[Rfam]
RNA sequence: CCUUUUGAUUAACAUGGAGGUACCUGCUGCCUAAAAAAGUAAGUGCUUCCAUGUUUCAGUGG
Number, nucleotide and partner (000 for none) at each position: 001c000002c062003u061004u000005u059006u058007g000008a000009u000010u000011a055012a054013c053014a052015u051016g050017g049018a048019g047020g046021u045022a044023c043024c000025u041026g040027c039028u038029g000030c000031c000032u000033a000034a000035a000036a000037a000038a028039g027040u026041a025042a000043g023044u022045g021046c020047u019048u018049c017050c016051a015052u014053g013054u012055u011056u000057c000058a006059g005060u000061g003062g002
Shown here is a 62-nucleotide sequence from Atrichornis clamosus, a member of the family "mir-302 microRNA precursor family". It scores 57 bits against the family's covariance model. Clan: mir-290 clan. Its family is annotated with RISC complex and miRNA-mediated post-transcriptional gene silencing in the Gene Ontology.